[Rfam]
RNA sequence: AGAACCAGAGGGCAGAACAGGCAGCUGCCGCCCAUUGUUAGGAGAGGCGGGAGACGUCACCCCGCCUGAUUCU
Numbered sequence: 001a002g003a004a005c006c007a008g009a010g011g012g013c014a015g016a017a018c019a020g021g022c023a024g025c026u027g028c029c030g031c032c033c034a035u036u037g038u039u040a041g042g043a044g045a046g047g048c049g050g051g052a053g054a055c056g057u058c059a060c061c062c063c064g065c066c067u068g069a070u071u072c073u
Base pairs, nucleotide, nucleotide: 001073002072003071004070006068007067008066011029012028013027014026015025020058021057022056031042047065048064049063050062051061
RNA: skipping-rope RNA